A member of the RNA family "mir-320 microRNA precursor family" from Propithecus coquereli, 76 nucleotides long. The family has 38 seed sequences and 659 matches in Rfam 15.1. Pairs were carried over by alignment from the consensus structure, which was predicted with RNAalifold. Its family is annotated with negative regulation of gene expression, cellular response to glucose stimulus and long-term synaptic potentiation in the Gene Ontology. The source organism's lineage runs through Eukaryota, Craniata, Euarchontoglires, Lemuriformes and Propithecus.

RNA sequence: AGAAAUUGGAGCCUUUUCUUCCUGGUUCUUUCUGGAGUUGGGAAAAGCUGGGUUGAGAGGGUAAAGAAAACAAAAA
Dot-bracket structure: .............(((((..(((((...((((((....))))))...)))))..))))).................
Numbered sequence: 001a002g003a004a005a006u007u008g009g010a011g012c013c014u015u016u017u018c019u020u021c022c023u024g025g026u027u028c029u030u031u032c033u034g035g036a037g038u039u040g041g042g043a044a045a046a047g048c049u050g051g052g053u054u055g056a057g058a059g060g061g062u063a064a065a066g067a068a069a070a071c072a073a074a075a076a
Stems, first nucleotide, its partner, number of pairs: 014059005021052005029044006